RNA: Mason-Pfizer monkey virus packaging signal
Nucleotides: 346
Base pairs, nucleotide, nucleotide: 006031007030012026013025036048037047038046084128085127087124088123094117098112100110101109138152140151141150142149143148160203161202162201163199164198165197210322211321212320213319214318215317216316217315220309221308222307223306224305331346334343335342
Number, partner (000 for none) and nucleotide at each position: 001000u002000g003000g004000c005000g006031c007030c008000c009000a010000a011000c012026g013025u014000c015000c016000g017000g018000c019000u020000u021000g022000g023000a024000u025013a026012c027000u028000g029000a030007g031006g032000c033000a034000g035000c036048a037047g038046u039000g040000a041000g042000a043000g044000a045000g046038a047037c048036u049000a050000c051000g052000u053000g054000a055000a056000a057000a058000g059000g060000a061000g062000c063000c064000c065000g066000u067000u068000c069000g070000a071000c072000a073000a074000a075000u076000u077000u078000u079000g080000a081000g082000a083000c084128a085127c086000a087124u088123c089000g090000g091000a092000g093000c094117c095000c096000u097000g098112g099000u100110g101109g102000g103000a104000a105000c106000c107000u108000g109101c110100c111000u112098u113000g114000g115000c116000u117094g118000a119000a120000a121000c122000c123088g124087a125000a126000a127085g128084u129000a130000a131000g132000u133000g134000g135000a136000a137000a138152c139000g140151u141150c142149c143148g144000a145000u146000u147000a148143u149142g150141g151140g152138g153000c154000a155000a156000g157000a158000a159000u160203u161202g162201a163199g164198u165197c166000a167000g168000c169000a170000u171000g172000a173000g174000c175000u176000u177000u178000a179000u180000g181000u182000u183000a184000a185000g186000c187000a188000g189000u190000u191000a192000a193000a194000a195000g196000a197165g198164g199163c200000u201162u202161u203160a204000a205000a206000g207000a208000c209000a210322c211321a212320g213319g214318g215317a216316g217315u218000a219000a220309a221308g222307g223306u224305u225000a226000a227000a228000a229000c230000u231000u232000g233000a234000g235000u236000c237000a238000g239000c240000a241000u242000g243000a244000g245000c246000u247000u248000u249000a250000u251000g252000u253000u254000a255000a256000g257000c258000a259000g260000u261000u262000a263000a264000a265000g266000g267000a268000c269000g270000c271000u272000u273000u274000a275000a276000a277000g278000a279000c280000a281000c282000g283000g284000g285000g286000a287000g288000u289000a290000a291000a292000g293000g294000u295000u296000a297000a298000g299000a300000c301000u302000a303000u304000g305224g306223a307222u308221u309220u310000g311000u312000u313000u314000c315217a316216u317215u318214u319213u320212u321211u322210g323000a324000u325000u326000u327000u328000g329000u330000u331346a332000a333000a334343g335342a336000a337000a338000u339000u340000u341000g342335u343334c344000c345000c346331u